RNA sequence: GUGCUCAGAGCGGGCUGUUCAAGCUUGCAUACGAUAAGCAUGGAAUGAUGGAAGAGGGCCUCGUCUACGUCUGUCGGUCUCCGUCUACGGCGAGGCAAUGAUCGAAGGGAGCGGUCAGGGCCACUCGUAUUGCGACGUUAGAGGUGAAAUUCUUGGAUCGUCGCAAGACGAACUGCAGCGAUGGCGUGUGGCAAGCACGUUUUCCUC
Numbered sequence: 001g002u003g004c005u006c007a008g009a010g011c012g013g014g015c016u017g018u019u020c021a022a023g024c025u026u027g028c029a030u031a032c033g034a035u036a037a038g039c040a041u042g043g044a045a046u047g048a049u050g051g052a053a054g055a056g057g058g059c060c061u062c063g064u065c066u067a068c069g070u071c072u073g074u075c076g077g078u079c080u081c082c083g084u085c086u087a088c089g090g091c092g093a094g095g096c097a098a099u100g101a102u103c104g105a106a107g108g109g110a111g112c113g114g115u116c117a118g119g120g121c122c123a124c125u126c127g128u129a130u131u132g133c134g135a136c137g138u139u140a141g142a143g144g145u146g147a148a149a150u151u152c153u154u155g156g157a158u159c160g161u162c163g164c165a166a167g168a169c170g171a172a173c174u175g176c177a178g179c180g181a182u183g184g185c186g187u188g189u190g191g192c193a194a195g196c197a198c199g200u201u202u203u204c205c206u207c
Stems, first nucleotide, its partner, number of pairs: 108204004112199002116195001120192005126170002130166008141152003178185002
RNA: Eukaryotic small subunit ribosomal RNA, nucleotides 1406 to 1612